[Rfam]
The record is a 171-nucleotide RNA sequence from Thermovenabulum gondwanense, which matches "Group II catalytic intron D1-D4-3" in Rfam. A search with the family's covariance model found it, with a score of 125 bits. NCBI's taxonomy places the organism under Bacteria, Bacillota, Thermosediminibacterales, Thermosediminibacteraceae, Thermovenabulum. Gene Ontology term of the family: Group II intron splicing. The pairing is the family consensus, mapped onto this sequence.

RNA sequence: UCUAUCGCGAGGUGGAAUCUGAAGGAAGCCGGAGGCAAAAUCCCGGUCCGAUGAACAGGAACUGCAUAUAAGGCAUAUGUAAGCCGGAUGAGUUUGCAAUAUAAAACGAAGUCCAAUGCUAUCCGAGGCUUAUGGUGUAAAUGCAGUAGGAGCAUAGAAGGAAAGGGUGGC
Numbered sequence: 001u002c003u004a005u006c007g008c009g010a011g012g013u014g015g016a017a018u019c020u021g022a023a024g025g026a027a028g029c030c031g032g033a034g035g036c037a038a039a040a041u042c043c044c045g046g047u048c049c050g051a052u053g054a055a056c057a058g059g060a061a062c063u064g065c066a067u068a069u070a071a072g073g074c075a076u077a078u079g080u081a082a083g084c085c086g087g088a089u090g091a092g093u094u095u096g097c098a099a100u101a102u103a104a105a106a107c108g109a110a111g112u113c114c115a116a117u118g119c120u121a122u123c124c125g126a127g128g129c130u131u132a133u134g135g136u137g138u139a140a141a142u143g144c145a146g147u148a149g150g151a152g153c154a155u156a157g158a159a160g161g162a163a164a165g166g167g168u169g170g171c
Stems, first nucleotide, its partner, number of pairs: 001016006031171001036165001041159001043157001045155001047150002050147001062146006073138003078134007086114004092107004